[Rfam]
RNA sequence: CAGUGUUAACAGCUUUCUUAGAAUUUGUCUAGCAGGUUUUCCAGUUCUUACCAGAAAAUCCCC
Number, nucleotide and partner (000 for none) at each position: 001c000002a000003g000004u000005g000006u000007u000008a000009a000010c000011a000012g000013c000014u000015u000016u000017c000018u000019u000020a000021g000022a000023a000024u000025u000026u000027g000028u000029c000030u000031a000032g000033c000034a000035g060036g059037u058038u057039u056040u055041c054042c000043a000044g051045u050046u000047c000048u000049u000050a045051c044052c000053a000054g041055a040056a039057a038058a037059u036060c035061c000062c000063c000
The family of this 63-nucleotide sequence from Otolemur garnettii is "U7 small nuclear RNA".
Animal histone pre-mRNAs are spliced by a different mechanism than nuclear pre-mRNAs and self-splicing introns.
The family's consensus secondary structure was predicted with PFOLD.